[Rfam]
RNA: msiK RNA
RNA sequence: CACCUCCGCCUUUACCACGGAUCGUCCGGCACGUACCUGCCGGUGAAGGAGAAGAGA
Numbered sequence: 001c002a003c004c005u006c007c008g009c010c011u012u013u014a015c016c017a018c019g020g021a022u023c024g025u026c027c028g029g030c031a032c033g034u035a036c037c038u039g040c041c042g043g044u045g046a047a048g049g050a051g052a053a054g055a056g057a
Base pairs, nucleotide, nucleotide: 009049010048011047012046013045014044026043027042028041029040030039031038
Dot-bracket structure: ........((((((...........((((((......))))))))))))........